mir-36 microRNA precursor family: a 107-nucleotide RNA sequence from Caenorhabditis latens. NCBI's taxonomy places the organism under Eukaryota, Opisthokonta, Bilateria, Peloderinae, Caenorhabditis. A search with the family's covariance model found it, with a score of 57 bits.
RNA sequence: UUACUUCCUGACGACGGGAACCUUGCUUGUUUCAACCUCGGUAAUAGACAAAAAUAGGAGAAGAAUCUAUCACCGGGUGGAAACUGGUACGGGUCCCCGAGUCAGUC
Numbered sequence: 001u002u003a004c005u006u007c008c009u010g011a012c013g014a015c016g017g018g019a020a021c022c023u024u025g026c027u028u029g030u031u032u033c034a035a036c037c038u039c040g041g042u043a044a045u046a047g048a049c050a051a052a053a054a055u056a057g058g059a060g061a062a063g064a065a066u067c068u069a070u071c072a073c074c075g076g077g078u079g080g081a082a083a084c085u086g087g088u089a090c091g092g093g094u095c096c097c098c099g100a101g102u103c104a105g106u107c
Stems, first nucleotide, its partner, number of pairs: 016097004021092002024089004029084005035078003039075001041073002044070005